[Rfam]
RNA sequence: AUAUAAGGAGCAAUAAACUCUUUCUUGUUCUAUCAAGAAGGGUUAUUGCUCCUUUAU
Numbered sequence: 001a002u003a004u005a006a007g008g009a010g011c012a013a014u015a016a017a018c019u020c021u022u023u024c025u026u027g028u029u030c031u032a033u034c035a036a037g038a039a040g041g042g043u044u045a046u047u048g049c050u051c052c053u054u055u056a057u
Stems, first nucleotide, its partner, number of pairs: 005054011022039006